[Rfam]
RNA sequence: ACUUCUCAAAAUAACACGCCCAUGGAGUAAAUUGUGGAAUCGGAGGUAAAGUAUGUGGACUUGGAGAAGUCUGAGGCCAGCUUGCUCCCUGCAGGCUCAAGAUCAACCAUCCCACAUAG
Numbered sequence: 001a002c003u004u005c006u007c008a009a010a011a012u013a014a015c016a017c018g019c020c021c022a023u024g025g026a027g028u029a030a031a032u033u034g035u036g037g038a039a040u041c042g043g044a045g046g047u048a049a050a051g052u053a054u055g056u057g058g059a060c061u062u063g064g065a066g067a068a069g070u071c072u073g074a075g076g077c078c079a080g081c082u083u084g085c086u087c088c089c090u091g092c093a094g095g096c097u098c099a100a101g102a103u104c105a106a107c108c109a110u111c112c113c114a115c116a117u118a119g
Stems, first nucleotide, its partner, number of pairs: 002046005015036004019025002057112003061109001079097007
RNA: Small nucleolar RNA SNORA38
Organism: Molossus molossus